[Rfam]
RNA: SAM (S-adenosyl methionine) riboswitch aptamer
Organism: Citricoccus sp. SGAir0253
RNA sequence: AAUCACGAGAUCCGGUGACAAGCCCUGGCUGGCCGGACGGCAACCCUCUCGCCGUAGUGGGGUGCUCCAGGUGAGGAUUCGGCCCGGUCGCGCAUGGCGGCGCGGGCAAGUACGGCAC
Numbered sequence: 001a002a003u004c005a006c007g008a009g010a011u012c013c014g015g016u017g018a019c020a021a022g023c024c025c026u027g028g029c030u031g032g033c034c035g036g037a038c039g040g041c042a043a044c045c046c047u048c049u050c051g052c053c054g055u056a057g058u059g060g061g062g063u064g065c066u067c068c069a070g071g072u073g074a075g076g077a078u079u080c081g082g083c084c085c086g087g088u089c090g091c092g093c094a095u096g097g098c099g100g101c102g103c104g105g106g107c108a109a110g111u112a113c114g115g116c117a118c
Stems, first nucleotide, its partner, number of pairs: 001079004009038001011037006021030002039066003044062003048057002082107005087101005